[Rfam]
RNA sequence: UAAAUAAUUCGGCCCAAUCUCCAAAUGGAGAACGGAGGAACCACUAAUUGGGGUUAAUUCUACUUAUGUAGAAGGGAUGAGAUUACUCUUUCGCCAUCCUACCCGUCAGCUAACUUCGUCGGCUAAGCGAAGGAGGUCUA
Numbered sequence: 001u002a003a004a005u006a007a008u009u010c011g012g013c014c015c016a017a018u019c020u021c022c023a024a025a026u027g028g029a030g031a032a033c034g035g036a037g038g039a040a041c042c043a044c045u046a047a048u049u050g051g052g053g054u055u056a057a058u059u060c061u062a063c064u065u066a067u068g069u070a071g072a073a074g075g076g077a078u079g080a081g082a083u084u085a086c087u088c089u090u091u092c093g094c095c096a097u098c099c100u101a102c103c104c105g106u107c108a109g110c111u112a113a114c115u116u117c118g119u120c121g122g123c124u125a126a127g128c129g130a131a132g133g134a135g136g137u138c139u140a
Stems, first nucleotide, its partner, number of pairs: 011124004018031003032119006042050002051104003059072004075099004
Record summary:
The record is a 140-nucleotide RNA from Pseudoneobacillus rhizosphaerae, which matches "c-di-AMP riboswitch aptamer (ydaO/yuaA leader)" in Rfam. A search with the family's covariance model found it, with a score of 76 bits. The source organism's lineage runs through Bacteria, Bacillota, Bacilli, Bacillaceae and Pseudoneobacillus. The base pairs follow the family's consensus structure.